[Rfam]
RNA: MIR6217 microRNA precursor family
RNA sequence: UGGCUAUAAAAUAACUUAUUCUGUAGCCACUUUUAGUUACAUCAUUACUAUGCUAAUUUACAAGAUUACAGUAACUCCUUACUAAGUGGUUUACUAUAAUGUUAUGGUAAAUAUCCUUAUGUGUUAUAAUAACCCAACUAUCGUAAAUAUGUAUUGACAUUAUCAUAAAUUAGUAUAUAAAAUUAUUGUAAAUGGAGGUGACUACAUAAUAACUUAUUUUAUAGCUG
Numbered sequence: 001u002g003g004c005u006a007u008a009a010a011a012u013a014a015c016u017u018a019u020u021c022u023g024u025a026g027c028c029a030c031u032u033u034u035a036g037u038u039a040c041a042u043c044a045u046u047a048c049u050a051u052g053c054u055a056a057u058u059u060a061c062a063a064g065a066u067u068a069c070a071g072u073a074a075c076u077c078c079u080u081a082c083u084a085a086g087u088g089g090u091u092u093a094c095u096a097u098a099a100u101g102u103u104a105u106g107g108u109a110a111a112u113a114u115c116c117u118u119a120u121g122u123g124u125u126a127u128a129a130u131a132a133c134c135c136a137a138c139u140a141u142c143g144u145a146a147a148u149a150u151g152u153a154u155u156g157a158c159a160u161u162a163u164c165a166u167a168a169a170u171u172a173g174u175a176u177a178u179a180a181a182a183u184u185a186u187u188g189u190a191a192a193u194g195g196a197g198g199u200g201a202c203u204a205c206a207u208a209a210u211a212a213c214u215u216a217u218u219u220u221a222u223a224g225c226u227g
Stems, first nucleotide, its partner, number of pairs: 001227014016212005022206005028200006037191004041186002044183003049177012064164003068160001073154001079146004086141006092131002095128008106116002